[Rfam]
The family of this 144-nucleotide RNA from Anoxybacillus sp. B7M1 is "c-di-AMP riboswitch aptamer (ydaO/yuaA leader)". The pairing is the family consensus, mapped onto this sequence. NCBI's taxonomy places the organism under Bacteria, Bacillati, Bacillota, Bacilli, Anoxybacillus.
RNA sequence: AUGCAUGAAUCGCUGAAUCCGUUAUGGAGCGGGGGAACCAAUAUUGUAACCAUUUUGUUACUUGGGGUGAAUCCUUAAAUAGGAGGGGCUACUCUCAUAGUCCCAACCCGACAGCUAACCUCGUAAGCGUUUUGGGAGGGAUGU
Numbered sequence: 001a002u003g004c005a006u007g008a009a010u011c012g013c014u015g016a017a018u019c020c021g022u023u024a025u026g027g028a029g030c031g032g033g034g035g036a037a038c039c040a041a042u043a044u045u046g047u048a049a050c051c052a053u054u055u056u057g058u059u060a061c062u063u064g065g066g067g068u069g070a071a072u073c074c075u076u077a078a079a080u081a082g083g084a085g086g087g088g089c090u091a092c093u094c095u096c097a098u099a100g101u102c103c104c105a106a107c108c109c110g111a112c113a114g115c116u117a118a119c120c121u122c123g124u125a126a127g128c129g130u131u132u133u134g135g136g137a138g139g140g141a142u143g144u
Stems, first nucleotide, its partner, number of pairs: 011129004018028003029124006039064002065109003073083003086103004